The family of this 69-nucleotide sequence from Ornithorhynchus anatinus is "mir-3116 microRNA precursor family". Gene Ontology terms of the family: RISC complex and miRNA-mediated post-transcriptional gene silencing. Pairs were carried over by alignment from the consensus structure, which was predicted with RNAalifold.
Nucleotides: 069
Stems, first nucleotide, its partner, number of pairs: 001069029
Number, partner (000 for none) and nucleotide at each position: 001069u002068g003067u004066u005065a006064a007063a008062u009061g010060c011059u012058u013057a014056c015055c016054a017053u018052g019051u020050a021049c022048c023047a024046g025045g026044c027043a028042c029041u030000g031000u032000g033000c034000u035000u036000a037000g038000g039000a040000c041029g042028g043027u044026g045025c046024c047023u048022g049021g050020u051019a052018c053017a054016u055015g056014g057013u058012a059011a060010g061009c062008a063007u064006u065005u066004a067003a068002c069001a